[Rfam]
RNA: Purine riboswitch aptamer
RNA sequence: GAAAUAAGAUUACAAAUCACUCGUAUAUACUUGGAAAUAAGGUCUGAGAGUUUCUACCGAGAUACCGUAAAUGUCUUGACUAUGAGUGAAAUUAUUAUAUCA
Number, nucleotide and partner (000 for none) at each position: 001g000002a000003a000004a000005u000006a000007a000008g000009a000010u000011u000012a000013c000014a000015a000016a000017u000018c088019a087020c086021u085022c084023g083024u082025a081026u000027a000028u000029a000030c048031u047032u046033g045034g044035a043036a000037a000038u000039a000040a000041g000042g000043u035044c034045u033046g032047a031048g030049a000050g000051u000052u000053u000054c000055u000056a000057c000058c078059g077060a076061g075062a074063u073064a072065c000066c000067g000068u000069a000070a000071a000072u064073g063074u062075c061076u060077u059078g058079a000080c000081u025082a024083u023084g022085a021086g020087u019088g018089a000090a000091a000092u000093u000094a000095u000096u000097a000098u000099a000100u000101c000102a000